[Rfam]
RNA sequence: GGAUGUGAGGGCGAUCUGGCUGCGACAUCUGUCACCCCAUUGAUCGCCAGGGUUGAUUCGGCUGAUCUGGCUGGCUAGGCGGGUGUCCCCUUCCUCCCUCACCGCUCCAUGUGCGUCCCUCCCGAAGCUGCGCGCUCGGUCGAAGAGGACGACCUUCCCCGAAUAGAGGAGGACCGGUCUUCGGUCAAGGGUAUACGAGUAGCUGCGCUCCCCUGCUAGAACCUCCAAACAAGCUCUCAAGAAAGCUGGACAAUCCUGGCUUCACCACCUUCCUAUCAUCAUAUUUGUCAGCUUUCUGCAGAUGGCAAGUCAGAUCUAC
Numbered sequence: 001g002g003a004u005g006u007g008a009g010g011g012c013g014a015u016c017u018g019g020c021u022g023c024g025a026c027a028u029c030u031g032u033c034a035c036c037c038c039a040u041u042g043a044u045c046g047c048c049a050g051g052g053u054u055g056a057u058u059c060g061g062c063u064g065a066u067c068u069g070g071c072u073g074g075c076u077a078g079g080c081g082g083g084u085g086u087c088c089c090c091u092u093c094c095u096c097c098c099u100c101a102c103c104g105c106u107c108c109a110u111g112u113g114c115g116u117c118c119c120u121c122c123c124g125a126a127g128c129u130g131c132g133c134g135c136u137c138g139g140u141c142g143a144a145g146a147g148g149a150c151g152a153c154c155u156u157c158c159c160c161g162a163a164u165a166g167a168g169g170a171g172g173a174c175c176g177g178u179c180u181u182c183g184g185u186c187a188a189g190g191g192u193a194u195a196c197g198a199g200u201a202g203c204u205g206c207g208c209u210c211c212c213c214u215g216c217u218a219g220a221a222c223c224u225c226c227a228a229a230c231a232a233g234c235u236c237u238c239a240a241g242a243a244a245g246c247u248g249g250a251c252a253a254u255c256c257u258g259g260c261u262u263c264a265c266c267a268c269c270u271u272c273c274u275a276u277c278a279u280c281a282u283a284u285u286u287g288u289c290a291g292c293u294u295u296c297u298g299c300a301g302a303u304g305g306c307a308a309g310u311c312a313g314a315u316c317u318a319c
Stems, first nucleotide, its partner, number of pairs: 001108003005102007013093002018090002024087010035074002037070003042067004046062003116172002118169004122139004127135002140162003147158003202269001204267001212259002215256001224250003233247001291316001293314003296309001297307003

A member of the RNA family "7SK RNA" from Rattus norvegicus, 319 nucleotides long. The source organism's lineage runs through Eukaryota, Deuterostomia, Eutheria, Boreoeutheria and Rattus. 7SK was discovered as an abundant small nuclear RNA in the mid-70s but a possible function has only recently been suggested. Two independent studies have found that 7SK RNA binds the CDK9/cyclin T complex (known as elongation factor P-TEFb). P-TEFb activates transcription by phosphorylating the C-terminal domain of RNA polymerase II. This process is negatively regulated by the 7SK RNP. The secondary structure of 7SK RNA shown here was proposed by Wasserman and Steitz on the basis of chemical modification and enzymatic cleavage experiments. This family contains a number of annotated pseudogenes and 7SK derived repeats. The threshold is artificially high to minimise the pseudogene count.